[Rfam]
RNA sequence: UGGUCCGGAGUGGAGUGGAAGACUAGUGAUUUUGUUGUUUUGCUUUUAGACAGACAACAAGUCAUUGUCUCCCUCCCUGCUUUGAGAC
Number, nucleotide and partner (000 for none) at each position: 001u000002g000003g000004u085005c084006c000007g000008g082009a081010g000011u079012g078013g077014a000015g075016u000017g073018g072019a000020a070021g069022a068023c067024u000025a000026g065027u064028g063029a062030u061031u060032u059033u000034g058035u057036u056037g055038u054039u053040u000041u000042g000043c000044u000045u000046u000047u000048a000049g000050a000051c000052a000053g039054a038055c037056a036057a035058c034059a032060a031061g030062u029063c028064a027065u026066u000067g023068u022069c021070u020071c000072c018073c017074u000075c015076c000077c013078u012079g011080c000081u009082u008083u000084g005085a004086g000087a000088c000

This 88-nucleotide RNA from Xiphophorus maculatus belongs to the Rfam family "mir-7 microRNA precursor family". Rfam describes the family as follows. This family represents the microRNA (miRNA) precursor mir-7. For this family Rfam cites "Identification of novel genes coding for small expressed RNAs" (Lagos-Quintana et al., Science, 2001). The organism belongs to Xiphophorus, within Eukaryota. Pairs were carried over by alignment from the consensus structure, which was predicted with PFOLD. Gene Ontology terms of the family: RISC complex and miRNA-mediated post-transcriptional gene silencing. A search with the family's covariance model found it, with a score of 59 bits.